[Rfam]
Nucleotides: 089
Base pairs, nucleotide, nucleotide: 001081002080003079004078005077006076007075008074009073013047014046015045016044018042028037029036030035049064050063051062052061053060
Number, partner (000 for none) and nucleotide at each position: 001081g002080g003079c004078c005077g006076g007075g008074u009073a010000g011000c012000g013047u014046g015045u016044a017000a018042c019000g020000a021000u022000a023000u024000a025000a026000g027000a028037c029036c030035c031000u032000u033000u034000u035030g036029g037028g038000a039000a040000a041000a042018g043000u044016u045015g046014c047013a048000g049064a050063c051062c052061g053060u054000a055000u056000g057000c058000u059000a060053g061052c062051g063050g064049u065000g066000u067000u068000c069000a070000a071000a072000g073009u074008a075007c076006c077005u078004g079003g080002c081001c082000g083000c084000c085000c086000c087000c088000u089000u
Source information: A member of the RNA family "sRNA-Xcc1" from Oxalobacteraceae bacterium CAVE-383, 89 nucleotides long. The match comes from Rfam's covariance-model search (62 bits). Lineage of the source: Bacteria > Pseudomonadati > Pseudomonadota > Burkholderiales > Oxalobacteraceae.